Description: Caenorhabditis snoRNA ceN104: a 155-nucleotide RNA from Caenorhabditis brenneri. The family's consensus secondary structure was predicted with RNAalifold. For this family Rfam cites "Systematic identification of non-coding RNA 2,2,7-trimethylguanosine cap structures in Caenorhabditis elegans" (Jia et al., BMC Mol Biol, 2007). It is one of the family's seed sequences. Rfam links the family to the GO terms nucleolus and RNA processing. The organism belongs to Caenorhabditis, within Eukaryota.
RNA sequence: CAGUUCUUCUCUGGAGCAAUGAAAAUUUCUCCUAACUGCUGGCAAUCAAAUUUGUUGCCAGAAGUUGCUCAGAACUGCUAUAUGAGUCUAGCUCGAGAUGCGUGUGCCGGAUUGCUUUUCAAUGCGAUCUGGUUCCUUUUCUCCUCGGGACAAUU
Numbered sequence: 001c002a003g004u005u006c007u008u009c010u011c012u013g014g015a016g017c018a019a020u021g022a023a024a025a026u027u028u029c030u031c032c033u034a035a036c037u038g039c040u041g042g043c044a045a046u047c048a049a050a051u052u053u054g055u056u057g058c059c060a061g062a063a064g065u066u067g068c069u070c071a072g073a074a075c076u077g078c079u080a081u082a083u084g085a086g087u088c089u090a091g092c093u094c095g096a097g098a099u100g101c102g103u104g105u106g107c108c109g110g111a112u113u114g115c116u117u118u119u120c121a122a123u124g125c126g127a128u129c130u131g132g133u134u135c136c137u138u139u140u141c142u143c144c145u146c147g148g149g150a151c152a153a154u155u
Base pairs, nucleotide, nucleotide: 003078004077007074008073015030016029018027019026020025034066035065036064037063039061040060041059042058043057092149093148094147095146096145097144100141106133107132108131109130110129111128112127113126114125115124